[Rfam]
RNA sequence: GGGCUUAUGAUGAUAUUUCAAAUCAUCUUAGCCAAUUUCAGUGAGAUUUUUUAUCAACGAUCUAAAUGUUACACACACUAAAGCCU
Numbered sequence: 001g002g003g004c005u006u007a008u009g010a011u012g013a014u015a016u017u018u019c020a021a022a023u024c025a026u027c028u029u030a031g032c033c034a035a036u037u038u039c040a041g042u043g044a045g046a047u048u049u050u051u052u053a054u055c056a057a058c059g060a061u062c063u064a065a066a067u068g069u070u071a072c073a074c075a076c077a078c079u080a081a082a083g084c085c086u
Stems, first nucleotide, its partner, number of pairs: 001086005
RNA: Small nucleolar RNA R11/Z151
Organism: Cucumis melo